[Rfam]
RNA sequence: UAUAUAAAAUGUGGUUAGGUCUAAAAAAACUCAGGAGAUGAACUUGUUGUCUAUCAGCUCCUUCUAUCGAAAUAUUAUCGAGAUUGGAGUUGAAUAACUGCACAACAGUU
Numbered sequence: 001u002a003u004a005u006a007a008a009a010u011g012u013g014g015u016u017a018g019g020u021c022u023a024a025a026a027a028a029a030c031u032c033a034g035g036a037g038a039u040g041a042a043c044u045u046g047u048u049g050u051c052u053a054u055c056a057g058c059u060c061c062u063u064c065u066a067u068c069g070a071a072a073u074a075u076u077a078u079c080g081a082g083a084u085u086g087g088a089g090u091u092g093a094a095u096a097a098c099u100g101c102a103c104a105a106c107a108g109u110u
Base pairs, nucleotide, nucleotide: 045102046101047100049098056091057090058089059088060087061086063083064082065081